RNA sequence: AUUCCCAUCAGCUCUGCAAUGGAAUGGGAUCCGUAGCCCCUCGAGGGAUAAUACAGGCUCUCCCAUUCAACUCCUAUUCCGAUACGUCCUCGUCGUGCAGAGUGGUAACAUGUGCCACCACAUAUCCAAGCUAGGGUACACGGGCUUGACCCAACCCCUUGGGCGGAUGGUGGCAUAUGGCGAACCAGGAGGGA
Numbered sequence: 001a002u003u004c005c006c007a008u009c010a011g012c013u014c015u016g017c018a019a020u021g022g023a024a025u026g027g028g029a030u031c032c033g034u035a036g037c038c039c040c041u042c043g044a045g046g047g048a049u050a051a052u053a054c055a056g057g058c059u060c061u062c063c064c065a066u067u068c069a070a071c072u073c074c075u076a077u078u079c080c081g082a083u084a085c086g087u088c089c090u091c092g093u094c095g096u097g098c099a100g101a102g103u104g105g106u107a108a109c110a111u112g113u114g115c116c117a118c119c120a121c122a123u124a125u126c127c128a129a130g131c132u133a134g135g136g137u138a139c140a141c142g143g144g145c146u147u148g149a150c151c152c153a154a155c156c157c158c159u160u161g162g163g164c165g166g167a168u169g170g171u172g173g174c175a176u177a178u179g180g181c182g183a184a185c186c187a188g189g190a191g192g193g194a
Stems, first nucleotide, its partner, number of pairs: 011103007022068008031057002072194004077190002080188001084096003088105002109179008118170002124168004132154001134152004156163002